A member of the RNA family "Alphaproteobacterial ar14" from Paramesorhizobium endophyticum, 120 nucleotides long. Rfam classes the family as a small RNA. A search with the family's covariance model found it, with a score of 101 bits. The base pairs follow the family's consensus structure. Taxonomically the source falls in Paramesorhizobium (Bacteria, Pseudomonadati, Alphaproteobacteria, Hyphomicrobiales).
RNA sequence: GAAUAUCGCGAAGAGCCCUCCUCCUCCCAGGCUCCAGCGAUCGAAGGCUGGCUCUCCUCCUCCCGGCCAGCCUUUCCCAAACGACACCCGCCGCUCCUCCUCCCGCGGCGGGUGUUGUUU
Numbered sequence: 001g002a003a004u005a006u007c008g009c010g011a012a013g014a015g016c017c018c019u020c021c022u023c024c025u026c027c028c029a030g031g032c033u034c035c036a037g038c039g040a041u042c043g044a045a046g047g048c049u050g051g052c053u054c055u056c057c058u059c060c061u062c063c064c065g066g067c068c069a070g071c072c073u074u075u076c077c078c079a080a081a082c083g084a085c086a087c088c089c090g091c092c093g094c095u096c097c098u099c100c101u102c103c104c105g106c107g108g109c110g111g112g113u114g115u116u117g118u119u120u
Base pairs, nucleotide, nucleotide: 007039008038009037013034014033015032016031017030043075044074045073046072047071048070049069050068051067052066084115085114086113087112088111089110090109091108092107093106094105